[Rfam]
The record is a 46-nucleotide sequence from Peribacillus faecalis, which matches "Ribosomal protein L19 leader" in Rfam. This family is a putative r-protein leader autoregulatory structure found in B. subtilis and other low-GC Gram-positive bacteria. It is located in the 5' untranslated regions of mRNAs encoding ribosomal protein L19 (rplS). The family's consensus secondary structure was predicted with CMfinder. The source organism's lineage runs through Bacteria, Bacillota, Bacilli, Caryophanales and Peribacillus. It scores 45 bits against the family's covariance model.

RNA sequence: ACGAUGUUCCGCUGCAAUGUAUAUAAAUGACUUGCAAGAGCGUCUG
Numbered sequence: 001a002c003g004a005u006g007u008u009c010c011g012c013u014g015c016a017a018u019g020u021a022u023a024u025a026a027a028u029g030a031c032u033u034g035c036a037a038g039a040g041c042g043u044c045u046g
Stems, first nucleotide, its partner, number of pairs: 003044007013036005

Its family is annotated with regulation of gene expression in the Gene Ontology.